[Rfam]
RNA sequence: CCAUACCAGCCGGGGAGUUAGCGGUGCCCUGUACCCGAAAUCCGCUAAAGCGGGGGUGCAUCCCCCGAACGAGGGCUGAACCGACGCGGUCCGAGACGCCGAACGUGUGUUGAGGAGCGGGUCCUGCGCAAUCCGGGGCUGUGAACCAUGUCAGGUGGGGAACCAAGCAGCAUUAAGCAGUUUACCGGAUGUGCCGCAGGGAUGCCUGUUCUGAGCACGGGCGGUGAGUAACGCGCGGCGGCGAUGUUCGACUUUGGGGUGUAUGG
Number, nucleotide and partner (000 for none) at each position: 001c266002c265003a264004u263005a262006c261007c000008a000009g057010c056011c055012g030013g029014g028015g027016a000017g025018u024019u023020a000021g000022c000023g019024g018025u017026g000027c015028c014029c013030u012031g000032u000033a000034c054035c053036c052037g051038a000039a000040a000041u000042c000043c000044g000045c000046u000047a000048a000049a000050g000051c037052g036053g035054g034055g011056g010057u009058g000059c000060a000061u000062c000063c259064c258065c257066c256067g255068a254069a253070c000071g000072a000073g249074g248075g247076c246077u000078g000079a000080a000081c241082c240083g239084a000085c237086g236087c235088g234089g000090u000091c000092c233093g232094a000095g000096a000097c226098g225099c224100c223101g222102a000103a000104c220105g000106u217107g216108u215109g000110u000111u000112g000113a000114g212115g211116a210117g209118c208119g207120g206121g205122u204123c200124c199125u198126g197127c196128g195129c191130a190131a000132u189133c188134c187135g186136g185137g182138g181139c180140u179141g178142u177143g000144a000145a000146c000147c000148a173149u172150g171151u170152c000153a000154g000155g000156u165157g164158g163159g000160g000161a000162a000163c158164c157165a156166a000167g000168c000169a000170g151171c150172a149173u148174u000175a000176a000177g142178c141179a140180g139181u138182u137183u000184a000185c136186c135187g134188g133189a132190u130191g129192u000193g000194c000195c128196g127197c126198a125199g124200g123201g000202a000203u000204g122205c121206c120207u119208g118209u117210u116211c115212u114213g000214a000215g108216c107217a106218c000219g000220g104221g000222c101223g100224g099225u098226g097227a000228g000229u000230a000231a000232c093233g092234c088235g087236c086237g085238g000239c083240g082241g081242c000243g000244a000245u000246g076247u075248u074249c073250g000251a000252c000253u069254u068255u067256g066257g065258g064259g063260u000261g006262u005263a004264u003265g002266g001
The family of this 266-nucleotide RNA from Anaerotruncus sp. CAG:390 is "Bacterial large signal recognition particle RNA". The organism belongs to Anaerotruncus, within Bacteria. The family's consensus secondary structure is taken from published work. The literature on the family includes a 2003 paper in Nucleic Acids Res by Rosenblad et al., "SRPDB: Signal Recognition Particle Database". From the family's description: The signal recognition particle (SRP) is a universally conserved ribonucleoprotein involved in the co-translational targeting of proteins to membranes.